[Rfam]
RNA sequence: GGCGAUAAAUUGCAGUGUGCAAUAGACAUAACGGACCCGGGGGCAGUACCCGGCGGCUCCACCAAAAACCGCAGGAAACUGCGGUUCCUGACGGGGCCGAACUAGGAUCGACGUGUGUUGAAAAGCAUUGUUUUUGCCCGGGUUGAGAAUCCCCGUAAAAAGCUCAUUUUUAUAAGUGCAAACGAUAACGAAGCACUCGCUCUCGCUGCGUAA
Numbered sequence: 001g002g003c004g005a006u007a008a009a010u011u012g013c014a015g016u017g018u019g020c021a022a023u024a025g026a027c028a029u030a031a032c033g034g035a036c037c038c039g040g041g042g043g044c045a046g047u048a049c050c051c052g053g054c055g056g057c058u059c060c061a062c063c064a065a066a067a068a069c070c071g072c073a074g075g076a077a078a079c080u081g082c083g084g085u086u087c088c089u090g091a092c093g094g095g096g097c098c099g100a101a102c103u104a105g106g107a108u109c110g111a112c113g114u115g116u117g118u119u120g121a122a123a124a125g126c127a128u129u130g131u132u133u134u135u136g137c138c139c140g141g142g143u144u145g146a147g148a149a150u151c152c153c154c155g156u157a158a159a160a161a162g163c164u165c166a167u168u169u170u171u172a173u174a175a176g177u178g179c180a181a182a183c184g185a186u187a188a189c190g191a192a193g194c195a196c197u198c199g200c201u202c203u204c205g206c207u208g209c210g211u212a213a
Base pairs, nucleotide, nucleotide: 001138002137003136004135005134015128016127017126018125027117028116029115031114032113033112037053038052039051040050041049054099055098056097057096058095059094060093139155140154141153142152
Dot-bracket structure: (((((.........((((........(((.(((...(((((.......)))))(((((((................................)))))))............)))))).......)))).....)))))((((.........))))..........................................................
Background:
permuted transfer-messenger RNA: a 213-nucleotide RNA sequence from Pontixanthobacter luteolus. From the family's description: Bacterial tmRNA, also known as 10Sa RNA or SsrA, is named for its dual tRNA and mRNA-like properties. Its role is to liberate the mRNA from a stalled ribosome. The base pairs follow the family's consensus structure, which is taken from published work. A search with the family's covariance model found it, with a score of 146 bits. Taxonomically the source falls in Pontixanthobacter (Bacteria, Pseudomonadati, Pseudomonadota, Alphaproteobacteria).